RNA sequence: CGAGGCUCCCAAUGUUUCGGGAUAAAGGAAGCUGGAAGCAAAUUACUGUCCUUAGGAUUACGAACCGCAUCAGGCAUAUCCUGUAGGAUGAGUUUGCCAAACCAAACGAUGUCCAAAAACUAUACGGAUACAGGAAUGUAAAUAUGGUGGGAACAUGGUGUGAAAACCAUUUAU
Numbered sequence: 001c002g003a004g005g006c007u008c009c010c011a012a013u014g015u016u017u018c019g020g021g022a023u024a025a026a027g028g029a030a031g032c033u034g035g036a037a038g039c040a041a042a043u044u045a046c047u048g049u050c051c052u053u054a055g056g057a058u059u060a061c062g063a064a065c066c067g068c069a070u071c072a073g074g075c076a077u078a079u080c081c082u083g084u085a086g087g088a089u090g091a092g093u094u095u096g097c098c099a100a101a102c103c104a105a106a107c108g109a110u111g112u113c114c115a116a117a118a119a120c121u122a123u124a125c126g127g128a129u130a131c132a133g134g135a136a137u138g139u140a141a142a143u144a145u146g147g148u149g150g151g152a153a154c155a156u157g158g159u160g161u162g163a164a165a166a167c168c169a170u171u172u173a174u
Base pairs, nucleotide, nucleotide: 001019002018003017004016005015006014031174034171035170038167044160045159046158047157048156049152050151051150052149065147066146067145069143074139075138076137079135080134081133082132083131084130085129086114087113088112089111092107093106094105095104

This 174-nucleotide RNA sequence from Marinilabilia rubra belongs to the Rfam family "Group II catalytic intron D1-D4-3". About the family: Group II introns are found in rRNA, tRNA and mRNA of organelles in fungi, plants and protists, and also in mRNA in bacteria.